[Rfam]
RNA sequence: AAGUCGUUUGCAACACGCGCUACUCUGGUACUUCAGGCUGUGCCAGUUCUCUAAUCAGUCAGGUACCUGAAGUAGCGCGCGUUGCGGAGGACG
Numbered sequence: 001a002a003g004u005c006g007u008u009u010g011c012a013a014c015a016c017g018c019g020c021u022a023c024u025c026u027g028g029u030a031c032u033u034c035a036g037g038c039u040g041u042g043c044c045a046g047u048u049c050u051c052u053a054a055u056c057a058g059u060c061a062g063g064u065a066c067c068u069g070a071a072g073u074a075g076c077g078c079g080c081g082u083u084g085c086g087g088a089g090g091a092c093g
Stems, first nucleotide, its partner, number of pairs: 009086004014081001016079007030064002033062001036060004
RNA: mir-275 microRNA precursor family
Organism: Vespula pensylvanica